[Rfam]
RNA sequence: UGACGGGGGCCCGCACAAGCGGCGGAGCAUGUUGCUUAAUUCGAUGCAACGCGAAGAACCUUACCUGGGUUUGACAUGCAGAGAAAUCUCGUAGAGAUACGGGGUCCGUAAGGGCUCUGCACAGGUGGUGCAUGGCUGUCGUCAGCUCGUGUCGUGAGAUGUUGGGUUAAGUCCCGCAACGAGCGCAACCCUCGUCCUAUGUUGCCAGCGGGUAAUGCCGGGAACUCAUAGGAGACUGCCGGGGUCAACUCGGAGGAAGGUGGGGAUGAGGUCAAGUCAUCAUGCCCCUUAUGUCCAGGGCUGCAAACAUGCUACAAUGGUCGGUACAAUGGGCUGCGAAAUCGUAAGGUGGAGCGAAUCCCUAAAAGCCGGCCUCAGUUCGGAUCGGGGUCUGCAACUCGACCCCGUGAAGUUGGAGUCGCUAGUAAUCGCGGAUCAGCAACGCCGCGGUGAAUACGUUCCCGGGCCUUGUACACACCGCCCGUCAAGUCAUGAAAGUCGGCAAUACCCGAAGCCGGUGACCUAACCCCUUGUGGGAUGGAGCCGUCGAAGGUGGGGCUGGCGAUUAGGACUAAGUCGUAACAAGG
Numbered sequence: 001u002g003a004c005g006g007g008g009g010c011c012c013g014c015a016c017a018a019g020c021g022g023c024g025g026a027g028c029a030u031g032u033u034g035c036u037u038a039a040u041u042c043g044a045u046g047c048a049a050c051g052c053g054a055a056g057a058a059c060c061u062u063a064c065c066u067g068g069g070u071u072u073g074a075c076a077u078g079c080a081g082a083g084a085a086a087u088c089u090c091g092u093a094g095a096g097a098u099a100c101g102g103g104g105u106c107c108g109u110a111a112g113g114g115c116u117c118u119g120c121a122c123a124g125g126u127g128g129u130g131c132a133u134g135g136c137u138g139u140c141g142u143c144a145g146c147u148c149g150u151g152u153c154g155u156g157a158g159a160u161g162u163u164g165g166g167u168u169a170a171g172u173c174c175c176g177c178a179a180c181g182a183g184c185g186c187a188a189c190c191c192u193c194g195u196c197c198u199a200u201g202u203u204g205c206c207a208g209c210g211g212g213u214a215a216u217g218c219c220g221g222g223a224a225c226u227c228a229u230a231g232g233a234g235a236c237u238g239c240c241g242g243g244g245u246c247a248a249c250u251c252g253g254a255g256g257a258a259g260g261u262g263g264g265g266a267u268g269a270g271g272u273c274a275a276g277u278c279a280u281c282a283u284g285c286c287c288c289u290u291a292u293g294u295c296c297a298g299g300g301c302u303g304c305a306a307a308c309a310u311g312c313u314a315c316a317a318u319g320g321u322c323g324g325u326a327c328a329a330u331g332g333g334c335u336g337c338g339a340a341a342u343c344g345u346a347a348g349g350u351g352g353a354g355c356g357a358a359u360c361c362c363u364a365a366a367a368g369c370c371g372g373c374c375u376c377a378g379u380u381c382g383g384a385u386c387g388g389g390g391u392c393u394g395c396a397a398c399u400c401g402a403c404c405c406c407g408u409g410a411a412g413u414u415g416g417a418g419u420c421g422c423u424a425g426u427a428a429u430c431g432c433g434g435a436u437c438a439g440c441a442a443c444g445c446c447g448c449g450g451u452g453a454a455u456a457c458g459u460u461c462c463c464g465g466g467c468c469u470u471g472u473a474c475a476c477a478c479c480g481c482c483c484g485u486c487a488a489g490u491c492a493u494g495a496a497a498g499u500c501g502g503c504a505a506u507a508c509c510c511g512a513a514g515c516c517g518g519u520g521a522c523c524u525a526a527c528c529c530c531u532u533g534u535g536g537g538a539u540g541g542a543g544c545c546g547u548c549g550a551a552g553g554u555g556g557g558g559c560u561g562g563c564g565a566u567u568a569g570g571a572c573u574a575a576g577u578c579g580u581a582a583c584a585a586g587g
Stems, first nucleotide, its partner, number of pairs: 001475002003472003007469007015459002019422005024315001026313008034304002040055004064299007077121007087104007106113002124288002127286004133282002135277003138273001140271001145184006151160003163176004190265004195233007205222002209220003236256002239253005319374007331362003336355002341350003381412001386407007428451007478586001480583001483579002488573004493568003498563006506555004514548001516546004522541002527537002
Shown here is a 587-nucleotide part of an RNA from Actinopolymorpha singaporensis, a member of the family "Bacterial small subunit ribosomal RNA". Clan: SSU clan. Lineage of the source: Bacteria > Actinomycetota > Actinomycetes > Propionibacteriales > Actinopolymorpha. The family's consensus secondary structure is taken from published work. The literature on the family includes a 2002 paper in BMC Bioinformatics by Cannone et al., "The comparative RNA web (CRW) site: an online database of comparative sequence and structure information for ribosomal, intron, and other RNAs". It scores 1576 bits against the family's covariance model.